[Rfam]
RNA sequence: CCUUAAACUGCUAUAGCAGCGCAUCAUGGUUUGCAGCACUACAGUAAAGGUGCAAAUCAUCAUUUGCUGCUGUAGAAUUUUAAGG
Numbered sequence: 001c002c003u004u005a006a007a008c009u010g011c012u013a014u015a016g017c018a019g020c021g022c023a024u025c026a027u028g029g030u031u032u033g034c035a036g037c038a039c040u041a042c043a044g045u046a047a048a049g050g051u052g053c054a055a056a057u058c059a060u061c062a063u064u065u066g067c068u069g070c071u072g073u074a075g076a077a078u079u080u081u082a083a084g085g
Stems, first nucleotide, its partner, number of pairs: 001085006013073009023063002026060010
mir-15 microRNA precursor family: an 85-nucleotide RNA sequence from Synaphobranchus kaupii. Rfam 15.1 lists 2,045 matches to the family in 649 species. Its Rfam clan is "mir-15 clan". Rfam's curators write: This family represents the related mir-15a and mir-15b sequences. In humans miR-15a and miR-16 are clustered within 0.5 kb at 13q14. The organism belongs to Synaphobranchus, within Eukaryota.